Nucleotides: 120
Stems, first nucleotide, its partner, number of pairs: 005116006017029003031100002033090002035049004044088002053065002070086005092103003
Number, partner (000 for none) and nucleotide at each position: 001000g002000a003000a004000a005116u006115u007114c008113u009112u010111c011000g012000g013000g014000g015000c016000a017029g018028g019027g020000u021000g022000u023000g024000a025000u026000u027019c028018c029017c030000u031100a032099c033090c034089g035049g036048c037047g038046g039000u040000g041000a042000c043000a044088g045087u046038c047037c048036g049035c050000g051000a052000c053065c054064c055000g056000u057000a058000a059000u060000u061000u062000a063000c064054g065053g066000c067000u068000g069000a070086a071085c072084c073083g074082g075000u076000g077000c078000a079000a080000u081000u082074c083073c084072g085071g086070u087045a088044c089034c090033g091000a092103c093102a094101g095000u096000a097000u098000a099032g100031u101094c102093u103092g104000g105000a106000c107000g108000a109000g110000a111010g112009a113008a114007g115006a116005a117000g118000g119000u120000u

FMN riboswitch aptamer (RFN element): a 120-nucleotide RNA from Blautia argi.
NCBI's taxonomy places the organism under Bacteria, Clostridia, Lachnospirales, Lachnospiraceae, Blautia.
Rfam's curators write: The RFN element is a highly conserved domain that is found frequently in the 5'-untranslated regions of prokaryotic mRNAs that encode for flavin mononucleotide (FMN) biosynthesis and transport proteins.
Rfam links the family to the GO term FMN binding.
The family's consensus secondary structure is taken from published work.
A search with the family's covariance model found it, with a score of 112 bits.